[Rfam]
RNA sequence: UGGCGCCCAACGUGCGGUGAGAAGUAAGAGGGACACAGUGAGGGACGUCGUCGAAGCCGGCCGGAUUGAAGAAAGAAAUCCAGAGGAGGAGUCACCGCGGGAACCUGCUGCGGCCUUGCUCUCUGGUAAGUGGAUGACGAUAUUAUGGGUCAGGAAAUUAGUAAGCAUGAGUUGUUUGUAGAAGGACUCAGCAGAGCAUUCAAGGCGCGAGGAGUAAAGGUGAAAGUAAGACGGUUAAUUAAAUAUUUUGAUUCUAUUAAGGGUGUUUGCCCCU
Dot-bracket structure: .....(((....((..........))...)))....(((.....)).)....................................((....(....(((((.......)))))..)...))..........(((.((.........)..)))).......(((.................................)).)........(((((.((..((.((.........)).))......)).)))))........(.((((....)))).)
RNA: Mason-Pfizer monkey virus packaging signal